[Rfam]
RNA: THF (Tetrahydrofolate) riboswitch aptamer
Organism: Vagococcus zengguangii
RNA sequence: AACAGAGUAGAAGACAGAGCGUUAAGUGCUUGGAGGAUGGGAUGUUGCCUCCGGGACGAAGGGGAGACCCGCGAUUUUGUUUUCGCAUUCGCUGCA
Numbered sequence: 001a002a003c004a005g006a007g008u009a010g011a012a013g014a015c016a017g018a019g020c021g022u023u024a025a026g027u028g029c030u031u032g033g034a035g036g037a038u039g040g041g042a043u044g045u046u047g048c049c050u051c052c053g054g055g056a057c058g059a060a061g062g063g064g065a066g067a068c069c070c071g072c073g074a075u076u077u078u079g080u081u082u083u084c085g086c087a088u089u090c091g092c093u094g095c096a
Stems, first nucleotide, its partner, number of pairs: 003094003010084010020073003026057002029055008040090005061070003